[Rfam]
RNA sequence: AAUCAUUUGCAGGGGGACUCUUUUAGAGUUGAGAAGGUAGAACCUGACCCUUAGAACCUGACUUAGUUAACACUAGCGUAGGGAGCAUCGUAUAAUAUGUU
Number, nucleotide and partner (000 for none) at each position: 001a000002a000003u000004c000005a000006u000007u000008u087009g086010c085011a051012g050013g049014g048015g000016g045017a029018c028019u027020c026021u025022u000023u000024u000025a021026g020027a019028g018029u017030u000031g000032a000033g000034a000035a000036g044037g043038u042039a000040g000041a000042a038043c037044c036045u016046g000047a000048c014049c013050c012051u011052u000053a000054g000055a000056a000057c082058c081059u080060g079061a000062c000063u076064u075065a074066g073067u000068u000069a000070a000071c000072a000073c066074u065075a064076g063077c000078g000079u060080a059081g058082g057083g000084a000085g010086c009087a008088u000089c000090g000091u000092a000093u000094a000095a000096u000097a000098u000099g000100u000101u000
RNA: TPP riboswitch aptamer (THI element)
Organism: Bacillus sp. FJAT-27916